[Rfam]
Rfam assigns this 115-nucleotide RNA to the family "SAM riboswitch aptamer (S box leader)".
Nucleotides: 115
Stems, first nucleotide, its partner, number of pairs: 001115008013041001015040003021031003025085004042077004047073002050069006081107001086104006
Number, partner (000 for none) and nucleotide at each position: 001115c002114u003113c004112u005111u006110a007109u008108c009000c010000a011000g012000a013041g014000a015040g016039g017038c018000g019000g020000a021031g022030g023029g024000a025085c026084u027083g028082g029023c030022c031021c032000g033000a034000u035000g036000a037000a038017g039016c040015c041013c042077g043076g044075c045074a046000a047073c048072c049000a050069a051068a052067c053066u054065u055064a056000c057000g058000a059000a060000a061000c062000g063000g064055u065054a066053a067052g068051u069050u070000c071000a072048g073047g074045u075044g076043c077042u078000a079000a080000u081107u082028c083027c084026a085025g086104c087103a088102a089101a090100a091099c092000g093000a094000u095000u096000a097000u098000c099091g100090u101089u102088u103087u104086g105000g106000a107081a108008g109007a110006u111005a112004a113003g114002a115001g